[Rfam]
RNA: mir-15 microRNA precursor family
RNA sequence: GGUUGCUUUACUGUAGCAGCACGUAAAUAUUGGAGUUGAGACUAAAUGAAGUCUCCAGUAUUGAUCGUGCUGCUGAAGCAAAGCUGAC
Numbered sequence: 001g002g003u004u005g006c007u008u009u010a011c012u013g014u015a016g017c018a019g020c021a022c023g024u025a026a027a028u029a030u031u032g033g034a035g036u037u038g039a040g041a042c043u044a045a046a047u048g049a050a051g052u053c054u055c056c057a058g059u060a061u062u063g064a065u066c067g068u069g070c071u072g073c074u075g076a077a078g079c080a081a082a083g084c085u086g087a088c
Stems, first nucleotide, its partner, number of pairs: 001088001003086001005084002014075010024064001026062010